[Rfam]
RNA: Eukaryotic large subunit ribosomal RNA, nucleotides 1 to 423
RNA sequence: CGACCUCAGAUCGGACGAGAUUACCCGCUGAAUUUAAGCAUAUAACUAAGCGGAGGAAAAGAAACUAACAAGGAUUUCCCCAGUAACGGCGAGUGAAGCGGGAAGAGCCCAGCACCGAAUCCCCCAGUGUCACGCUGGCGGGAACUGUGGUGUGUGGGACGCCACCAGUCGCGCGUGCGAGCACCGAAGUCCUCCUGAUCGAGGCUUCACCCAGAGCGGGUGUAAGGCCUUUGCUGGUGCUUCGCUGCGCGGCCGCGAGCGUCUCAGGAGUCGGGUUGUUUGGGAAUGCAGCCCAAAGUGGGUGGUAAACUCCAUCUAAGGCUAAAUACUGGCACGAGUCCGAUAGCGGACAAGUACCGUGAGGGAAAGUUGAAAAGAACUUGAAGAGAGAGUUCAAGAGUACGUGAACCGCUCAGAGGUAAA
Numbered sequence: 001c002g003a004c005c006u007c008a009g010a011u012c013g014g015a016c017g018a019g020a021u022u023a024c025c026c027g028c029u030g031a032a033u034u035u036a037a038g039c040a041u042a043u044a045a046c047u048a049a050g051c052g053g054a055g056g057a058a059a060a061g062a063a064a065c066u067a068a069c070a071a072g073g074a075u076u077u078c079c080c081c082a083g084u085a086a087c088g089g090c091g092a093g094u095g096a097a098g099c100g101g102g103a104a105g106a107g108c109c110c111a112g113c114a115c116c117g118a119a120u121c122c123c124c125c126a127g128u129g130u131c132a133c134g135c136u137g138g139c140g141g142g143a144a145c146u147g148u149g150g151u152g153u154g155u156g157g158g159a160c161g162c163c164a165c166c167a168g169u170c171g172c173g174c175g176u177g178c179g180a181g182c183a184c185c186g187a188a189g190u191c192c193u194c195c196u197g198a199u200c201g202a203g204g205c206u207u208c209a210c211c212c213a214g215a216g217c218g219g220g221u222g223u224a225a226g227g228c229c230u231u232u233g234c235u236g237g238u239g240c241u242u243c244g245c246u247g248c249g250c251g252g253c254c255g256c257g258a259g260c261g262u263c264u265c266a267g268g269a270g271u272c273g274g275g276u277u278g279u280u281u282g283g284g285a286a287u288g289c290a291g292c293c294c295a296a297a298g299u300g301g302g303u304g305g306u307a308a309a310c311u312c313c314a315u316c317u318a319a320g321g322c323u324a325a326a327u328a329c330u331g332g333c334a335c336g337a338g339u340c341c342g343a344u345a346g347c348g349g350a351c352a353a354g355u356a357c358c359g360u361g362a363g364g365g366a367a368a369g370u371u372g373a374a375a376a377g378a379a380c381u382u383g384a385a386g387a388g389a390g391a392g393u394u395c396a397a398g399a400g401u402a403c404g405u406g407a408a409c410c411g412c413u414c415a416g417a418g419g420u421a422a423a
Stems, first nucleotide, its partner, number of pairs: 024055001025053005035042002065072002076103004086094002106323004113152005119146001120142003124138004157264002160261003165257001170251005177245001179242007189205001191204004212216001219229002273294007300317005357364002380390002382387001
Dot-bracket structure: .......................((((((.....((....))......))))).).........((....))...((((......((.....)).....))))..((((...(((((.((((.((((.......)))).)))...).)))))....((.(((..(....(((((..(.(((((((...(.((((......)))))......(...)..((.......))......)))))))..).))))).....).))).))........(((((((........))))))).....(((((........)))))..)))).................................((....))...............(((....).)).................................